[Rfam]
RNA sequence: CCAGUCGUAGCCGAUGUUCCACAGGAGCGGCCCGAGGACCGAGCCCUGCGGGACACCGCACGACAUC
Dot-bracket structure: ...(((((.((.(.((((((...(.((.(((.((.....)).))))).)))))))).)))))))...
Shown here is a 67-nucleotide RNA from Manduca sexta, a member of the family "mir-3389 microRNA precursor family".
The base pairs follow the family's consensus structure, which was predicted with RNAalifold.
Lineage of the source: Eukaryota > Panarthropoda > Lepidoptera > Bombycoidea > Manduca.
Rfam links the family to the GO terms miRNA-mediated post-transcriptional gene silencing and RISC complex.